[Rfam]
RNA sequence: AUAAAGGCACAGAUGGAGAAAAAUGUAUCUCAUCUUAUUUAUAAGAGAGCCAGAAAAGGUGAAAGCUGGUAUUAAGAGGAUAUAAUAUAUUCACUCCUAAGCUGAUUUGUUGAAAAUUCAAGAGUAGACAGAUACGAAAACCCAUCGUUAUCAGGGAUAAGACUAUUAGGUCUGAUUUAAGUGAUGACUCUUUUGUCAUAACUAGGGUGGUACCGCGGAGAUAAUCUUUCGUCCCUAUA
Numbered sequence: 001a002u003a004a005a006g007g008c009a010c011a012g013a014u015g016g017a018g019a020a021a022a023a024u025g026u027a028u029c030u031c032a033u034c035u036u037a038u039u040u041a042u043a044a045g046a047g048a049g050c051c052a053g054a055a056a057a058g059g060u061g062a063a064a065g066c067u068g069g070u071a072u073u074a075a076g077a078g079g080a081u082a083u084a085a086u087a088u089a090u091u092c093a094c095u096c097c098u099a100a101g102c103u104g105a106u107u108u109g110u111u112g113a114a115a116a117u118u119c120a121a122g123a124g125u126a127g128a129c130a131g132a133u134a135c136g137a138a139a140a141c142c143c144a145u146c147g148u149u150a151u152c153a154g155g156g157a158u159a160a161g162a163c164u165a166u167u168a169g170g171u172c173u174g175a176u177u178u179a180a181g182u183g184a185u186g187a188c189u190c191u192u193u194u195g196u197c198a199u200a201a202c203u204a205g206g207g208u209g210g211u212a213c214c215g216c217g218g219a220g221a222u223a224a225u226c227u228u229u230c231g232u233c234c235c236u237a238u239a
Stems, first nucleotide, its partner, number of pairs: 007102002015097004026084003030080002040071001049070005105133007135147003184199005204236004215232005
RNA: T-box leader